[Rfam]
RNA sequence: GCGGCCGUUGCUGAAUGGUAUAAGCGAGGGUUUUAGGUGCCCUUGGGAGAAAUCCCAUGUGGGUUCGAGUCCCACCGGCCGCA
Numbered sequence: 001g002c003g004g005c006c007g008u009u010g011c012u013g014a015a016u017g018g019u020a021u022a023a024g025c026g027a028g029g030g031u032u033u034u035a036g037g038u039g040c041c042c043u044u045g046g047g048a049g050a051a052a053u054c055c056c057a058u059g060u061g062g063g064u065u066c067g068a069g070u071c072c073c074a075c076c077g078g079c080c081g082c083a
Stems, first nucleotide, its partner, number of pairs: 001082007010025003027043005059075005
Overview: The family of this 83-nucleotide RNA sequence from Actinacidiphila glaucinigra is "tRNA". Pairs were carried over by alignment from the consensus structure, which is taken from published work. About the family: Transfer RNA (tRNA) molecules are approximately 80 nucleotides in length. It is annotated as a transfer RNA.